sul1 RNA: a 56-nucleotide RNA from Novosphingobium lindaniclasticum. By type it is a riboswitch. A search with the family's covariance model found it, with a score of 69 bits.
[Rfam]
RNA sequence: AAGGAGCCCGGUGCAAAUCCGGGUGGCUAUUCCGGCCGCCGAUCCGCCGGACAAUC
Dot-bracket structure: .....(((((((....).))))))......((((((.........)))))).....